[Rfam]
RNA: SAM riboswitch aptamer (S box leader)
RNA sequence: UUCUUAUCCAGAGAGAUGGAGGGAUAUGGCCCUGUGAAAUCUCGGCAGCGGGUUUCUUUUAUAAGAAAUACUGUGCUAAUUCCAGCAAGAAUUUAUUUUCUUGAAAGAUAAGAA
Dot-bracket structure: ((((((((....(((((...(((...[[[)))......)))))((((.(((.((...........)).)..))))))...(]]].((((((......))))))..)))))))))
Numbered sequence: 001u002u003c004u005u006a007u008c009c010a011g012a013g014a015g016a017u018g019g020a021g022g023g024a025u026a027u028g029g030c031c032c033u034g035u036g037a038a039a040u041c042u043c044g045g046c047a048g049c050g051g052g053u054u055u056c057u058u059u060u061a062u063a064a065g066a067a068a069u070a071c072u073g074u075g076c077u078a079a080u081u082c083c084a085g086c087a088a089g090a091a092u093u094u095a096u097u098u099u100c101u102u103g104a105a106a107g108a109u110a111a112g113a114a
Stems, first nucleotide, its partner, number of pairs: 001114008013043005021032003027084003044077004049073002051069001053067002081106001086103006